The record is an 87-nucleotide sequence from Pontibacillus litoralis, which matches "BsrC" in Rfam. The source organism's lineage runs through Bacteria, Bacillati, Bacillota, Caryophanales and Pontibacillus litoralis.
[Rfam]
RNA sequence: AAAAACUUAAAUAACGAAAGCCCUACCUCUCAUUCGUCCUUGCGACUCCUCGAUCGCGCCAGUGUAAAUAAGGUGCUUGCAUGGAAG
Number, nucleotide and partner (000 for none) at each position: 001a000002a000003a000004a000005a000006c000007u000008u000009a000010a000011a000012u000013a000014a000015c000016g000017a000018a000019a000020g000021c000022c000023c000024u000025a000026c000027c000028u000029c000030u000031c000032a000033u000034u067035c000036g065037u000038c000039c062040u061041u058042g057043c056044g055045a054046c000047u052048c000049c000050u000051c000052g047053a000054u045055c044056g043057c042058g041059c000060c000061a040062g039063u000064g000065u036066a000067a034068a000069u000070a000071a000072g000073g000074u000075g000076c000077u000078u000079g000080c000081a000082u000083g000084g000085a000086a000087g000

Description
Rfam 15.1 lists 572 matches to the family in 553 species. A search with the family's covariance model found it, with a score of 69 bits. The 301 nucleotide sequence from Kouji Nakamura has been trimmed to a highly conserved ~85 nucleotide long core to form this family. For this family Rfam cites "Novel small RNA-encoding genes in the intergenic regions of Bacillus subtilis" (Saito et al., Gene, 2008).